[Rfam]
RNA sequence: AACUUUUAUGAUUUUGAUUGUUGCUCAGAAAGCCGUUUCCUAUAAAGGCUUUCGGGCAAUAAUCAAUACCACAAGAGUU
Numbered sequence: 001a002a003c004u005u006u007u008a009u010g011a012u013u014u015u016g017a018u019u020g021u022u023g024c025u026c027a028g029a030a031a032g033c034c035g036u037u038u039c040c041u042a043u044a045a046a047g048g049c050u051u052u053c054g055g056g057c058a059a060u061a062a063u064c065a066a067u068a069c070c071a072c073a074a075g076a077g078u079u
Stems, first nucleotide, its partner, number of pairs: 001079007012068001014066005020060007028053007
This 79-nucleotide RNA sequence from Phyllotreta striolata belongs to the Rfam family "mir-315 microRNA precursor family". The family's consensus secondary structure was predicted with RNAalifold. It scores 77 bits against the family's covariance model. A reference for the family is Stark et al. (2007), "Systematic discovery and characterization of fly microRNAs using 12 Drosophila genomes", Genome Res.